Overview: A member of the RNA family "FMN riboswitch aptamer (RFN element)" from Megasphaera cerevisiae, 137 nucleotides long. Taxonomically the source falls in Megasphaera cerevisiae (Bacteria, Veillonellales, Veillonellaceae, Megasphaera). Rfam links the family to the GO term FMN binding. The family's consensus secondary structure is taken from published work.

RNA sequence: UUCAGUCUUUAAGGUAUGGUGAGAAAGGAGUUUCCUUUCAUAUUCCUGACCGGCGGUUAUAGUCCGCAACCUCUUACGGGAGUUGAUUCGAUGAAAUCUCGAAACCGACAGUAUAGUCUGGAUGGGAAAAGACAGCA
Numbered sequence: 001u002u003c004a005g006u007c008u009u010u011a012a013g014g015u016a017u018g019g020u021g022a023g024a025a026a027g028g029a030g031u032u033u034c035c036u037u038u039c040a041u042a043u044u045c046c047u048g049a050c051c052g053g054c055g056g057u058u059a060u061a062g063u064c065c066g067c068a069a070c071c072u073c074u075u076a077c078g079g080g081a082g083u084u085g086a087u088u089c090g091a092u093g094a095a096a097u098c099u100c101g102a103a104a105c106c107g108a109c110a111g112u113a114u115a116g117u118c119u120g121g122a123u124g125g126g127a128a129a130a131g132a133c134a135g136c137a
Stems, first nucleotide, its partner, number of pairs: 003135001005133006018046002049117002051107002053067004062105002071082002087103005109120003